[Rfam]
RNA sequence: AUACUCUGGUCUCCCUUCAUAACGAAUAAAUCUUUCGCCUUUUACUAAAGAUUUCCGUGGAGGGGGACUCACUGAUGAGUCUGCAAAGUUUUUAUUCACAUCUAUAUUAUAUAAA
Numbered sequence: 001a002u003a004c005u006c007u008g009g010u011c012u013c014c015c016u017u018c019a020u021a022a023c024g025a026a027u028a029a030a031u032c033u034u035u036c037g038c039c040u041u042u043u044a045c046u047a048a049a050g051a052u053u054u055c056c057g058u059g060g061a062g063g064g065g066g067a068c069u070c071a072c073u074g075a076u077g078a079g080u081c082u083g084c085a086a087a088g089u090u091u092u093u094a095u096u097c098a099c100a101u102c103u104a105u106a107u108u109a110u111a112u113a114a115a
Base pairs, nucleotide, nucleotide: 003080004079005078006077009068010067011066012065013064014063015062016061017060018059019058028054029053030052031051032050033049034048035047101115103113104112
Rfam assigns this 115-nucleotide RNA sequence from Cimex lectularius to the family "U5 spliceosomal RNA". Taxonomically the source falls in Cimex (Eukaryota, Allotriocarida, Insecta, Neoptera). Its family is annotated with U5 snRNP and spliceosomal tri-snRNP complex assembly in the Gene Ontology. The family's consensus secondary structure is taken from published work.